Shown here is a 74-nucleotide sequence from Alligator sinensis, a member of the family "Mammalian CPEB3 ribozyme". Gene Ontology term of the family: RNA nuclease activity. Taxonomically the source falls in Alligator (Eukaryota, Deuterostomia, Dipnotetrapodomorpha, Crocodylia).
[Rfam]
RNA sequence: UUGCAAUUUCAAGACCAUAGCAGAAAUGCUCAUGGUGCAGCCUGUUAGAUUCCAGUGAAUCUAUGAAUUCUGCU
Dot-bracket structure: ............[.[...(((((((.((.......))..].]...(((((((....)))))))....)))))))
Numbered sequence: 001u002u003g004c005a006a007u008u009u010c011a012a013g014a015c016c017a018u019a020g021c022a023g024a025a026a027u028g029c030u031c032a033u034g035g036u037g038c039a040g041c042c043u044g045u046u047a048g049a050u051u052c053c054a055g056u057g058a059a060u061c062u063a064u065g066a067a068u069u070c071u072g073c074u
Stems, first nucleotide, its partner, number of pairs: 013042001015040001019074007027037002046063007